[Rfam]
RNA sequence: ACACGAGAGAGGAGGUGGUCCGACGGUGAUUUCGUUGAGGACUCGUGAGGUGGCUGUCCGCUAGGACCACCCAUCCGAGAACGAUGGUUGCCGGCCUGGCGCACACGGCUGACACCGGAUCUCCGGUGCCGUAGGCGCGGGCGUGUGGUCGGCGAAUACCAGGCAGUCACCCAGCCCUCGGGCUCCCGGGACCCAGUCCGACCCGGGCCCUUCCGCCGCCUUGUCGGAGGGGAGCCAGCCCGGGGGCUGUGCCUU
Numbered sequence: 001a002c003a004c005g006a007g008a009g010a011g012g013a014g015g016u017g018g019u020c021c022g023a024c025g026g027u028g029a030u031u032u033c034g035u036u037g038a039g040g041a042c043u044c045g046u047g048a049g050g051u052g053g054c055u056g057u058c059c060g061c062u063a064g065g066a067c068c069a070c071c072c073a074u075c076c077g078a079g080a081a082c083g084a085u086g087g088u089u090g091c092c093g094g095c096c097u098g099g100c101g102c103a104c105a106c107g108g109c110u111g112a113c114a115c116c117g118g119a120u121c122u123c124c125g126g127u128g129c130c131g132u133a134g135g136c137g138c139g140g141g142c143g144u145g146u147g148g149u150c151g152g153c154g155a156a157u158a159c160c161a162g163g164c165a166g167u168c169a170c171c172c173a174g175c176c177c178u179c180g181g182g183c184u185c186c187c188g189g190g191a192c193c194c195a196g197u198c199c200g201a202c203c204c205g206g207g208c209c210c211u212u213c214c215g216c217c218g219c220c221u222u223g224u225c226g227g228a229g230g231g232g233a234g235c236c237a238g239c240c241c242g243g244g245g246g247c248u249g250u251g252c253c254u255u
Base pairs, nucleotide, nucleotide: 014058015057016056017055018054019053059154060153061152062151064150065149067148068147069146070145072143074141075140076139077138172249173248174247175246176245177244178243179242180241181240182239183238184237186206187205188204189203190202